[Rfam]
This 74-nucleotide RNA sequence from Sulfitobacter sp. HI0023 belongs to the Rfam family "Singlet oxygen resistance RNA X". The source organism's lineage runs through Bacteria, Pseudomonadota, Alphaproteobacteria, Rhodobacterales and Sulfitobacter. It scores 77 bits against the family's covariance model. Rfam describes the family as follows. SorX (RSs2461)like SorY is a singlet oxygen induced sRNA that counteracts oxidative stress by targeting mRNA for a transporter in Rhodobacter. It also has an impact on resistance against organic hydroperoxides. It targets SD sequence of potA mRNA via an aSD sequence. Rfam 15.1 lists 528 matches to the family in 356 species. The pairing is the family consensus, mapped onto this sequence.

Nucleotides: 074
Base pairs, nucleotide, nucleotide: 010031011030012029013028014027015026016025048068049067050066051065052064053063054062055061
Number, partner (000 for none) and nucleotide at each position: 001000a002000a003000c004000c005000c006000g007000u008000u009000u010031a011030u012029g013028c014027g015026u016025c017000c018000g019000g020000g021000c022000a023000a024000u025016g026015g027014c028013g029012c030011a031010u032000a033000c034000c035000u036000c037000c038000c039000u040000g041000u042000u043000g044000g045000a046000c047000u048068g049067g050066c051065c052064g053063g054062g055061c056000u057000u058000u059000a060000u061055g062054c063053c064052c065051g066050g067049c068048c069000u070000u071000u072000u073000u074000u